This 113-nucleotide sequence from Muraenolepis orangiensis belongs to the Rfam family "Small nucleolar RNA SNORD67". The organism belongs to Muraenolepis, within Eukaryota. It scores 78 bits against the family's covariance model. Gene Ontology terms of the family: nucleolus and RNA processing. For this family Rfam cites "RNomics: an experimental approach that identifies 201 candidates for novel, small, non-messenger RNAs in mouse" (Huttenhofer et al., EMBO J, 2001). The base pairs follow the family's consensus structure. Rfam describes the family as follows. snoRNA HBII-166 belongs to the C/D family of snoRNAs.
Nucleotides: 113
Base pairs, nucleotide, nucleotide: 004112006110008108025067028064029063031061032060034058035057036056040053041052042051043050044049
Number, partner (000 for none) and nucleotide at each position: 001000u002000g003000u004112g005000g006110g007000a008108g009000u010000g011000a012000u013000g014000a015000g016000u017000u018000g019000c020000a021000c022000u023000g024000c025067u026000a027000u028064g029063u030000c031061g032060g033000g034058g035057c036056g037000c038000a039000g040053g041052c042051u043050g044049c045000a046000g047000u048000g049044g050043c051042g052041g053040c054000c055000g056036c057035g058034c059000u060032c061031c062000a063029a064028c065000c066000g067025a068000c069000c070000c071000u072000c073000g074000c075000u076000g077000g078000g079000g080000a081000c082000a083000c084000c085000c086000c087000a088000u089000g090000u091000g092000c093000a094000c095000a096000g097000g098000g099000g100000c101000c102000a103000u104000c105000u106000g107000a108008c109000c110006c111000a112004c113000a